[Rfam]
RNA sequence: UUGAUAGAUUUAAAGACUUCAACUUGCACAAUAGAAGUUUUGAAGAUUUGAACUUGUAUAUAUGGUGGAUUUGAAACUUCAACU
Number, nucleotide and partner (000 for none) at each position: 001u082002u081003g080004a079005u000006a000007g000008a000009u075010u074011u073012a072013a071014a070015g000016a000017c067018u000019u065020c064021a063022a000023c000024u000025u058026g057027c056028a055029c000030a000031a000032u051033a000034g049035a048036a047037g000038u000039u000040u000041u000042g000043a000044a000045g000046a000047u036048u035049u034050g000051a032052a000053c000054u000055u028056g027057u026058a025059u000060a000061u000062a000063u021064g020065g019066u000067g017068g000069a000070u014071u013072u012073g011074a010075a009076a000077c000078u000079u004080c003081a002082a001083c000084u000